RNA sequence: GUAAAAAUUAAAUACGGUUCUCGUAUAAUCCUGGGAAUAUGGCCCAAAAGUUUCUACCAAGCUACCAUAAAUAGCUUGACUACGAGAUUGUGUAUAUAAGUA
Numbered sequence: 001g002u003a004a005a006a007a008u009u010a011a012a013u014a015c016g017g018u019u020c021u022c023g024u025a026u027a028a029u030c031c032u033g034g035g036a037a038u039a040u041g042g043c044c045c046a047a048a049a050g051u052u053u054c055u056a057c058c059a060a061g062c063u064a065c066c067a068u069a070a071a072u073a074g075c076u077u078g079a080c081u082a083c084g085a086g087a088u089u090g091u092g093u094a095u096a097u098a099a100g101u102a
Stems, first nucleotide, its partner, number of pairs: 019087007029049001032046004058078007
RNA: Purine riboswitch aptamer